Background
M-box riboswitch aptamer (ykoK leader): a 167-nucleotide RNA from Eubacterium ventriosum. The family has 159 seed sequences and 1,095 matches in Rfam 15.1. A reference for the family is Barrick et al. (2004), "New RNA motifs suggest an expanded scope for riboswitches in bacterial genetic control", Proc Natl Acad Sci U S A.
[Rfam]
RNA sequence: CUACUUUAUCGGUAGGUGAGGUUACCAUAGGGAUUCGGUUUAAUCCUAAGAUUGCUGCCGCGAGAUUGUGGAGACACAAUUAGUUGGUUAGCAGGAUGUGUCGUUAAGGCAUAACCUAAUGCAAUUAAUAUACGCCCUAUGAUGCUAAAGCUUGAACGGUGAUUUUA
Number, nucleotide and partner (000 for none) at each position: 001c000002u000003a000004c000005u000006u162007u161008a160009u159010c158011g157012g000013u107014a000015g152016g151017u150018g000019a000020g146021g145022u144023u000024a000025c000026c141027a140028u139029a138030g137031g136032g135033a000034u000035u000036c000037g000038g000039u000040u000041u000042a000043a000044u000045c000046c000047u000048a000049a000050g000051a125052u124053u123054g122055c121056u000057g000058c086059c000060g084061c083062g000063a000064g000065a000066u000067u078068g077069u076070g075071g000072a000073g000074a000075c070076a069077c068078a067079a000080u000081u000082a000083g061084u060085u000086g058087g000088u000089u000090a000091g000092c000093a000094g116095g115096a000097u113098g000099u000100g110101u109102c108103g000104u000105u000106a000107a013108g102109g101110c100111a000112u000113a097114a000115c095116c094117u000118a000119a000120u000121g055122c054123a053124a052125u051126u000127a000128a000129u000130a000131u000132a000133c000134g000135c032136c031137c030138u029139a028140u027141g026142a000143u000144g022145c021146u020147a000148a000149a000150g017151c016152u015153u000154g000155a000156a000157c011158g010159g009160u008161g007162a006163u000164u000165u000166u000167a000